Histone 3' UTR stem-loop: a 46-nucleotide sequence from Strongylocentrotus purpuratus. Pairs were carried over by alignment from the consensus structure, which is taken from published work. It is one of the family's seed sequences. By type it is a cis-regulatory element.
RNA sequence: CAAACGGCUCUUUUCAGAGCCACCACAACCCCAAGAAAGAAUCAUU
Numbered sequence: 001c002a003a004a005c006g007g008c009u010c011u012u013u014u015c016a017g018a019g020c021c022a023c024c025a026c027a028a029c030c031c032c033a034a035g036a037a038a039g040a041a042u043c044a045u046u
Stems, first nucleotide, its partner, number of pairs: 006021006